[Rfam]
RNA sequence: CCUCAGGGACGGCCCUGAGCCCACAUCGGGCCCCCUCAGGGACGGCCCUA
Numbered sequence: 001c002c003u004c005a006g007g008g009a010c011g012g013c014c015c016u017g018a019g020c021c022c023a024c025a026u027c028g029g030g031c032c033c034c035c036u037c038a039g040g041g042a043c044g045g046c047c048c049u050a
Stems, first nucleotide, its partner, number of pairs: 002019007038049004
Dot-bracket structure: .(((((((....)))))))..................((((....)))).
Background:
The family of this 50-nucleotide RNA sequence from Rynchops niger is "Guanidine-II riboswitch aptamer (mini-ykkC)". Rfam 15.1 lists 1,589 matches to the family in 1,229 species. From the family's description: Simpler in structure and has fewer highly conserved nucleotide positions than the ykkC-yxkD leader. The organism belongs to Rynchops, within Eukaryota.